Background
The record is a 92-nucleotide RNA sequence from Bacillus sp. 7884-1, which matches "pan motif" in Rfam. The source organism's lineage runs through Bacteria, Bacillati, Bacillota, Caryophanales and Bacillus. Pairs were carried over by alignment from the consensus structure, which is taken from published work.
[Rfam]
RNA sequence: UGGGCGGUAUCCUUGAGAGCUGCACCUGAAACUAUUUUUUCAUAAUUUAAAAGGUUUCUGCCUAGAUCCGUAGCACGGACCGGGACAGAGGG
Numbered sequence: 001u002g003g004g005c006g007g008u009a010u011c012c013u014u015g016a017g018a019g020c021u022g023c024a025c026c027u028g029a030a031a032c033u034a035u036u037u038u039u040u041c042a043u044a045a046u047u048u049a050a051a052a053g054g055u056u057u058c059u060g061c062c063u064a065g066a067u068c069c070g071u072a073g074c075a076c077g078g079a080c081c082g083g084g085a086c087a088g089a090g091g092g
Stems, first nucleotide, its partner, number of pairs: 002026002004023005010018002058088003061084003065080001067079003